[Rfam]
RNA: FMN riboswitch aptamer (RFN element)
Organism: Pigmentiphaga humi
RNA sequence: GUGCGUCUUCAGGGCGGGGUGCAAAUCCCCACCGGCGGUAGGGUGCGACGAUGCGCACCGAGCCCGCGAGCGCUUGCCGGCCACGCCGGCAAGGUCAGCAGAUCCGGUCGAAUACCGGAGCCGACGGUCAUAGUCCGGAUGAGAGAAGACGGGA
Number, nucleotide and partner (000 for none) at each position: 001g000002u000003g000004c151005g150006u149007c148008u147009u146010c145011a000012g000013g000014g000015c000016g000017g029018g028019g027020u000021g000022c000023a000024a000025a000026u000027c019028c018029c017030c000031a134032c133033c123034g122035g067036c066037g065038g064039u000040a000041g000042g000043g000044u000045g000046c000047g000048a000049c000050g000051a000052u000053g000054c000055g000056c000057a000058c000059c000060g000061a000062g121063c120064c038065c037066g036067c035068g000069a000070g099071c098072g000073c000074u000075u000076g000077c000078c000079g000080g000081c000082c000083a000084c000085g000086c000087c000088g000089g000090c000091a000092a000093g000094g000095u000096c000097a000098g071099c070100a000101g000102a000103u119104c118105c117106g116107g115108u000109c000110g000111a000112a000113u000114a000115c107116c106117g105118g104119a103120g063121c062122c034123g033124a000125c137126g136127g135128u000129c000130a000131u000132a000133g032134u031135c127136c126137g125138g000139a000140u000141g000142a000143g000144a000145g010146a009147a008148g007149a006150c005151g004152g000153g000154a000